[Rfam]
RNA: Small nucleolar RNA psi18S-1377
Organism: Drosophila busckii
RNA sequence: UCGUUCUUGUGUUAUUUGCUGAAUUUCUACUCUCAUUCAGUGAUUGUCAAACAGAACGUAUACUAAAUCCCAAACCAGACUCACUCCACAAUGCAGAGUCUAUUUUAACCAAGACUUCUACAUUACAAAUCACUGGUUACACUA
Numbered sequence: 001u002c003g004u005u006c007u008u009g010u011g012u013u014a015u016u017u018g019c020u021g022a023a024u025u026u027c028u029a030c031u032c033u034c035a036u037u038c039a040g041u042g043a044u045u046g047u048c049a050a051a052c053a054g055a056a057c058g059u060a061u062a063c064u065a066a067a068u069c070c071c072a073a074a075c076c077a078g079a080c081u082c083a084c085u086c087c088a089c090a091a092u093g094c095a096g097a098g099u100c101u102a103u104u105u106u107a108a109c110c111a112a113g114a115c116u117u118c119u120a121c122a123u124u125a126c127a128a129a130u131c132a133c134u135g136g137u138u139a140c141a142c143u144a
Stems, first nucleotide, its partner, number of pairs: 002058006010049002016043007090124004097116004